Rfam assigns this 94-nucleotide RNA from Sorghum bicolor to the family "MIR5387 microRNA precursor family".
RNA sequence: UUGUAACACGAACCGGUGCUAAAAGGUCCCUGCCCCGACAGCACCUGUCACUAGCCGUUGGACAGAACCCUUUAGCACCGGUUCUUGUUACAAU
Numbered sequence: 001u002u003g004u005a006a007c008a009c010g011a012a013c014c015g016g017u018g019c020u021a022a023a024a025g026g027u028c029c030c031u032g033c034c035c036c037g038a039c040a041g042c043a044c045c046u047g048u049c050a051c052u053a054g055c056c057g058u059u060g061g062a063c064a065g066a067a068c069c070c071u072u073u074a075g076c077a078c079c080g081g082u083u084c085u086u087g088u089u090a091c092a093a094u
Base pairs, nucleotide, nucleotide: 003091004090005089006088007087008086010084011083012082013081014080015079016078017077018076019075020074021073022072023071025069026068027067030065034061035060038058039057046050
The base pairs follow the family's consensus structure, which was predicted with RNAalifold. Gene Ontology terms of the family: RISC complex and miRNA-mediated post-transcriptional gene silencing. The match comes from Rfam's covariance-model search (71 bits). Lineage of the source: Eukaryota > Panicoideae > Andropogonodae > Sorghinae > Sorghum. The family has 2 seed sequences and 1,029 matches in Rfam 15.1.